Shown here is a 96-nucleotide RNA from Paenibacillus thalictri, a member of the family "c-di-GMP-I riboswitch aptamer".

RNA sequence: UAGGUUUAAAGGCACACCUGCUGAAAGGCGGGGCCGCAAAGCUAGAGGGGCUAAAGCGUUUGUUCGUUACAAGCGUCAUGCCAGCCAGCUGCCCUC
Numbered sequence: 001u002a003g004g005u006u007u008a009a010a011g012g013c014a015c016a017c018c019u020g021c022u023g024a025a026a027g028g029c030g031g032g033g034c035c036g037c038a039a040a041g042c043u044a045g046a047g048g049g050g051c052u053a054a055a056g057c058g059u060u061u062g063u064u065c066g067u068u069a070c071a072a073g074c075g076u077c078a079u080g081c082c083a084g085c086c087a088g089c090u091g092c093c094c095u096c
Stems, first nucleotide, its partner, number of pairs: 012037002017032006040090004047086002049082003056076008